mir-6 microRNA precursor family: a 79-nucleotide RNA sequence from Lucilia cuprina. Gene Ontology terms of the family: RISC complex and miRNA-mediated post-transcriptional gene silencing.
RNA sequence: AAUUAAAAAGAACUGUUGCUUGUGAUGUAGUUUUCUAAUAUUUCCAUUUCAUAUAUCACAGUGGCUGUUCUUUUUAGUU
Number, nucleotide and partner (000 for none) at each position: 001a000002a000003u000004u076005a075006a000007a073008a072009a071010g070011a069012a068013c067014u000015g000016u064017u063018g062019c061020u060021u000022g000023u058024g057025a000026u055027g054028u053029a052030g000031u000032u000033u000034u000035c000036u000037a000038a000039u000040a000041u000042u000043u000044c000045c000046a000047u000048u000049u000050c000051a000052u029053a028054u027055a026056u000057c024058a023059c000060a020061g019062u018063g017064g016065c000066u000067g013068u012069u011070c010071u009072u008073u007074u000075u005076a004077g000078u000079u000
A reference for the family is Mourelatos et al. (2002), "miRNPs: a novel class of ribonucleoproteins containing numerous microRNAs", Genes Dev. About the family: This family consists of the microRNA (miRNA) precursor mir-6 which appears to be Drosophila specific. Animal miRNAs are transcribed as ~70nt precursors and subsequently processed by the Dicer enzyme to give a ~22nt product. In this case the mature sequence comes from the 3' arm of the precursor. The extents of the hairpin precursors are not generally known and are estimated based on hairpin prediction.